[Rfam]
This 373-nucleotide sequence from Leuconostocaceae bacterium R-53105 belongs to the Rfam family "Bacterial RNase P class B". Rfam's curators write: Ribonuclease P (RNase P) is a ubiquitous endoribonuclease, found in archaea, bacteria and eukarya as well as chloroplasts and mitochondria. Its best characterised activity is the generation of mature 5'-ends of tRNAs by cleaving the 5'-leader elements of precursor-tRNAs. Cellular RNase Ps are ribonucleoproteins. RNA from bacterial RNase Ps retains its catalytic activity in the absence of the protein subunit, i.e. it is a ribozyme. A search with the family's covariance model found it, with a score of 297 bits. Clan: RNaseP clan. The family's RNA type in Rfam is ribozyme.
RNA sequence: GAUGCUGAGUAAUUGCGCAUAAUAUUUCUUAUGUGAGGAAGGUCCAUGCUCGCACAUUCUGAGACGGAUGUAGUGUUUGUGCUGGGAUAAGAAAUAAACCCAGGGGUGGUGGUAACACCAUUACGGCAACUGAAAGUGCUAAGGCUUUGCUAUGCAUGAAUAGGUUUGAAAGUGCUAUAGAAACGGAUAUGCUAAUGAAAGUUAGUAUUUGAGACGAGGUAAACCCCACAAGCGGGCAACCCAAACUUUGGUAGGGGCGGCUGACCUAGUGAAAUGAAACGAUGGUCGGUAUGGUUCGUUAGCGAACUUAGAUAGAUGAUUACUGAAGGUAUAAGCUCCUGACUUAUACUGGAACAAAACAUGGCCUAUAGGC
Number, nucleotide and partner (000 for none) at each position: 001g000002a000003u000004g373005c372006u371007g369008a324009g323010u322011a321012a320013u319014u318015g000016c035017g034018c033019a032020u031021a030022a000023u000024a000025u000026u000027u000028c000029u000030u021031a020032u019033g018034u017035g016036a000037g000038g000039a000040a367041g366042g365043u000044c364045c363046a362047u361048g360049c236050u235051c234052g233053c232054a071055c070056a069057u068058u067059c066060u000061g000062a000063g000064a000065c000066g059067g058068a057069u056070g055071u054072a000073g000074u000075g000076u000077u231078u230079g229080u228081g227082c103083u102084g101085g100086g099087a000088u000089a000090a000091g000092a000093a000094a000095u000096a000097a000098a000099c086100c085101c084102a083103g082104g124105g122106g121107u120108g119109g118110u117111g000112g000113u000114a000115a000116c000117a110118c109119c108120a107121u106122u105123a000124c104125g226126g225127c000128a166129a165130c164131u163132g000133a000134a000135a000136g157137u156138g155139c154140u000141a000142a000143g151144g150145c149146u000147u000148u000149g145150c144151u143152a000153u000154g139155c138156a137157u136158g000159a000160a000161u000162a000163g131164g130165u129166u128167u000168g000169a000170a000171a000172g224173u223174g220175c219176u218177a000178u000179a000180g000181a000182a000183a000184c000185g000186g000187a000188u000189a208190u207191g206192c205193u204194a203195a202196u201197g000198a000199a000200a000201g196202u195203u194204a193205g192206u191207a190208u189209u000210u000211g000212a000213g000214a000215c000216g000217a000218g176219g175220u174221a000222a000223a173224c172225c126226c125227c081228a080229c079230a078231a077232g053233c052234g051235g050236g049237c000238a000239a000240c256241c255242c254243a000244a000245a000246c000247u000248u000249u000250g000251g000252u000253a000254g242255g241256g240257g000258c000259g000260g290261c289262u288263g287264a286265c285266c284267u000268a000269g000270u000271g000272a000273a000274a000275u000276g000277a000278a000279a000280c000281g000282a000283u000284g266285g265286u264287c263288g262289g261290u260291a309292u000293g000294g308295u000296u306297c000298g000299u000300u000301a000302g000303c000304g000305a000306a296307c000308u294309u291310a000311g000312a000313u000314a000315g000316a000317u000318g014319a013320u012321u011322a010323c009324u008325g000326a000327a000328g350329g349330u348331a347332u346333a345334a344335g343336c000337u000338c000339c000340u000341g000342a000343c335344u334345u333346a332347u331348a330349c329350u328351g000352g000353a000354a000355c000356a000357a000358a000359a000360c048361a047362u046363g045364g044365c042366c041367u040368a000369u007370a000371g006372g005373c004